[Rfam]
RNA sequence: ACCGGGGACGCUGAAAACCGAAAAGAGUAGGCA
Number, nucleotide and partner (000 for none) at each position: 001a000002c000003c020004g019005g018006g000007g000008a000009c000010g032011c031012u030013g000014a000015a000016a000017a000018c005019c004020g003021a000022a000023a000024a000025g000026a000027g000028u000029a000030g012031g011032c010033a000
DUF805b RNA: a 33-nucleotide sequence.
The base pairs follow the family's consensus structure, which is taken from published work.
The sequence is in the family's curated seed alignment.